[Rfam]
RNA: Small nucleolar RNA SNORA74
RNA sequence: UCCAGUGGUAGUCAGCUGUCCAGAGCAAUAGUGCCUGUGAUAGUGUUACACUGCUGGGAGAUGAAGAUCAGUCAUUUCUUGUGGCUGCUGCUGCCACCGUUCUGGUGACAGCUGAUGCCGAAAGAAGUGUCACUGUGCUUCCCUGAGAGCGCACUGGAGGUUCCCUUUCCCUCCUUGGUGCUAGUCUGGGAGCGCACAUA
Numbered sequence: 001u002c003c004a005g006u007g008g009u010a011g012u013c014a015g016c017u018g019u020c021c022a023g024a025g026c027a028a029u030a031g032u033g034c035c036u037g038u039g040a041u042a043g044u045g046u047u048a049c050a051c052u053g054c055u056g057g058g059a060g061a062u063g064a065a066g067a068u069c070a071g072u073c074a075u076u077u078c079u080u081g082u083g084g085c086u087g088c089u090g091c092u093g094c095c096a097c098c099g100u101u102c103u104g105g106u107g108a109c110a111g112c113u114g115a116u117g118c119c120g121a122a123a124g125a126a127g128u129g130u131c132a133c134u135g136u137g138c139u140u141c142c143c144u145g146a147g148a149g150c151g152c153a154c155u156g157g158a159g160g161u162u163c164c165c166u167u168u169c170c171c172u173c174c175u176u177g178g179u180g181c182u183a184g185u186c187u188g189g190g191a192g193c194g195c196a197c198a199u200a
Stems, first nucleotide, its partner, number of pairs: 001058009011049002015044006021037003025034002066133001071131001073129002080124001082122001083119003088114001090112003095107004135195008151181003155177001156174005